[Rfam]
RNA: Small nucleolar RNA sn668
Organism: Caenorhabditis brenneri
RNA sequence: AGUCAGUGAUGUUUUUUCAAGACGGGACCGACUUGUGAAUGAUGCAUAAUCGAAAUGCUGAGACU
Numbered sequence: 001a002g003u004c005a006g007u008g009a010u011g012u013u014u015u016u017u018c019a020a021g022a023c024g025g026g027a028c029c030g031a032c033u034u035g036u037g038a039a040u041g042a043u044g045c046a047u048a049a050u051c052g053a054a055a056u057g058c059u060g061a062g063a064c065u
Base pairs, nucleotide, nucleotide: 001065002064003063004062